[Rfam]
RNA sequence: AGAGGUCAUGUAAACAUCUUUAACUGAAAGCUUUACCUGACAAAUAUAACUUUCAGUUAGAUGUUUAUGUUAUCUUG
Numbered sequence: 001a002g003a004g005g006u007c008a009u010g011u012a013a014a015c016a017u018c019u020u021u022a023a024c025u026g027a028a029a030g031c032u033u034u035a036c037c038u039g040a041c042a043a044a045u046a047u048a049a050c051u052u053u054c055a056g057u058u059a060g061a062u063g064u065u066u067a068u069g070u071u072a073u074c075u076u077g
Stems, first nucleotide, its partner, number of pairs: 002076005008070012023057008032048001
Annotation
Shown here is a 77-nucleotide sequence from Callorhinchus milii, a member of the family "mir-30 microRNA precursor family". The organism belongs to Callorhinchus, within Eukaryota. About the family: This family consists of the mammalian microRNA (miRNA) precursor mir-30a. Animal miRNAs are transcribed as ~70nt precursors and subsequently processed by the Dicer enzyme to give a ~22nt product. In this case the mature sequence comes from both the 3' (miR-30) and 5' (mir-97-6) arms of the precursor.